[Rfam]
RNA sequence: ACGAAGCAUCUUGAGCAGGGCUGACGCCCUCGCCAACCUGCCAGACCCGGCAAGGUGGUUUCCGAAAGGGGAUGCGGCCAAGGCAACCAAAGGGUCCAAA
Number, nucleotide and partner (000 for none) at each position: 001a000002c000003g000004a000005a000006g075007c074008a073009u072010c071011u000012u000013g000014a000015g031016c000017a030018g029019g028020g027021c026022u000023g000024a000025c000026g021027c020028c019029c018030u017031c015032g059033c058034c057035a000036a000037c055038c054039u053040g051041c050042c049043a000044g096045a095046c094047c093048c092049g042050g041051c040052a000053a039054g038055g037056u000057g034058g033059u032060u000061u000062c000063c000064g000065a000066a000067a000068g000069g000070g000071g010072a009073u008074g007075c006076g000077g084078c083079c000080a000081a000082g000083g078084c077085a000086a000087c000088c000089a000090a000091a000092g048093g047094g046095u045096c044097c000098a000099a000100a000

The record is a 100-nucleotide sequence, which matches "SAM-I/IV (S-adenosyl methionine) riboswitch aptamer" in Rfam. Rfam links the family to the GO terms regulation of gene expression and S-adenosylmethionine metabolic process. A reference for the family is Weinberg et al. (2008), "The aptamer core of SAM-IV riboswitches mimics the ligand-binding site of SAM-I riboswitches", RNA. The family's consensus secondary structure is taken from published work.